This 73-nucleotide sequence from Amycolatopsis suaedae belongs to the Rfam family "6C RNA". It scores 65 bits against the family's covariance model.

RNA sequence: GGCCGUUCAGUCCGACCCCCCGGGGCUGAACCCGGCGACCCCCGCCCCUCCCCCCUGGCGGGGGUCGCCCCUU
Number, nucleotide and partner (000 for none) at each position: 001g000002g033003c000004c000005g031006u030007u029008c028009a027010g026011u025012c024013c023014g000015a000016c000017c000018c000019c000020c000021c000022g000023g013024g012025g011026c010027u009028g008029a007030a006031c005032c000033c002034g069035g068036c067037g066038a065039c064040c063041c062042c061043c060044g059045c058046c057047c000048c000049u000050c000051c000052c000053c000054c000055c000056u000057g046058g045059c044060g043061g042062g041063g040064g039065u038066c037067g036068c035069c034070c000071c000072u000073u000
Rfam links the family to the GO term sporulation.